MIR7486 microRNA precursor family: an 87-nucleotide RNA sequence from Gossypium raimondii.
The family's consensus secondary structure was predicted with RNAalifold.
Rfam 15.1 lists 10,132 matches to the family in 36 species.
RNA sequence: CACGUCAGCGCGCUUUGCUUACGUGGACACAAAUCGCGCCUACGAGGACGCGAUUUUCUGACACAUCAGCAAAACGCGCUGAUGUCC
Numbered sequence: 001c002a003c004g005u006c007a008g009c010g011c012g013c014u015u016u017g018c019u020u021a022c023g024u025g026g027a028c029a030c031a032a033a034u035c036g037c038g039c040c041u042a043c044g045a046g047g048a049c050g051c052g053a054u055u056u057u058c059u060g061a062c063a064c065a066u067c068a069g070c071a072a073a074a075c076g077c078g079c080u081g082a083u084g085u086c087c
Stems, first nucleotide, its partner, number of pairs: 002085011014073006021066001023064003031056008040047002